[Rfam]
RNA sequence: GGGGGUAGAUGGGUUCUGGUGGAUCCUCUGGUCUUCAAAACCAGCACGAGGCGUUAGGAGCGUCUUGGGUGAGUUCGAUUCUCACAUACUCCC
Numbered sequence: 001g002g003g004g005g006u007a008g009a010u011g012g013g014u015u016c017u018g019g020u021g022g023a024u025c026c027u028c029u030g031g032u033c034u035u036c037a038a039a040a041c042c043a044g045c046a047c048g049a050g051g052c053g054u055u056a057g058g059a060g061c062g063u064c065u066u067g068g069g070u071g072a073g074u075u076c077g078a079u080u081c082u083c084a085c086a087u088a089c090u091c092c093c
Stems, first nucleotide, its partner, number of pairs: 001093007008085001011026006028044005047067005070084004

A member of the RNA family "Selenocysteine transfer RNA" from Anaerosalibacter massiliensis, 93 nucleotides long. On this family, see Mizutani and Goto, FEBS Lett 2000: "Eukaryotic selenocysteine tRNA has the 9/4 secondary structure". Lineage of the source: Bacteria > Bacillota > Tissierellales > Sporanaerobacteraceae > Anaerosalibacter.